[Rfam]
RNA: Eukaryotic large subunit ribosomal RNA, nucleotides 983 to 1303
RNA sequence: GAGUCUAACACGCGCGCGAGUCGGAGGCUGAGCGCGAAAGCCCCGCGGCGCAAUGAAGGUGAGGGCCGGCGCGCGCCGGCCGAGGUGGGAUCCCGUGUCCGCCGCCGAGCGGGGGGCGCACCACCGGCCCGUCUCGCCCGCCCCGUCGGGGAGGUGGAGCGUGAGCGCGCGUGCUAGGACCCGAAAGAUGGUGAACUAUGCCCGGGCAGGGCGAAGCCAGAGGAAACUCUGGUGGAGGUCCGUAGCGGUCCUGACGUGCAAAUCGGUCGUCCGACCUGGGUAUAGGGGCGAAAGACUAAUCGAACCGUCUAGUAGCUGGUU
Numbered sequence: 001g002a003g004u005c006u007a008a009c010a011c012g013c014g015c016g017c018g019a020g021u022c023g024g025a026g027g028c029u030g031a032g033c034g035c036g037a038a039a040g041c042c043c044c045g046c047g048g049c050g051c052a053a054u055g056a057a058g059g060u061g062a063g064g065g066c067c068g069g070c071g072c073g074c075g076c077c078g079g080c081c082g083a084g085g086u087g088g089g090a091u092c093c094c095g096u097g098u099c100c101g102c103c104g105c106c107g108a109g110c111g112g113g114g115g116g117c118g119c120a121c122c123a124c125c126g127g128c129c130c131g132u133c134u135c136g137c138c139c140g141c142c143c144c145g146u147c148g149g150g151g152a153g154g155u156g157g158a159g160c161g162u163g164a165g166c167g168c169g170c171g172u173g174c175u176a177g178g179a180c181c182c183g184a185a186a187g188a189u190g191g192u193g194a195a196c197u198a199u200g201c202c203c204g205g206g207c208a209g210g211g212c213g214a215a216g217c218c219a220g221a222g223g224a225a226a227c228u229c230u231g232g233u234g235g236a237g238g239u240c241c242g243u244a245g246c247g248g249u250c251c252u253g254a255c256g257u258g259c260a261a262a263u264c265g266g267u268c269g270u271c272c273g274a275c276c277u278g279g280g281u282a283u284a285g286g287g288g289c290g291a292a293a294g295a296c297u298a299a300u301c302g303a304a305c306c307g308u309c310u311a312g313u314a315g316c317u318g319g320u321u
Stems, first nucleotide, its partner, number of pairs: 005177003009173009020049003026042004053060002084125005092116002127160002129157006138148001180319002183316001187309006196285011207273001209241004216233007245270004250266002253264002287297002
Dot-bracket structure: ....(((.(((((((((..(((...((((.........))))....)))...((....)).......................(((((...((.....................))....))))).((((((((...(.........)...)))))).))....))))))))).)))..((.(...((((((...((((((((((((.((((...(((((((....)))))))....))))...((((.((.((........))))))))..).))))))))))).((.......))......))))))......).))..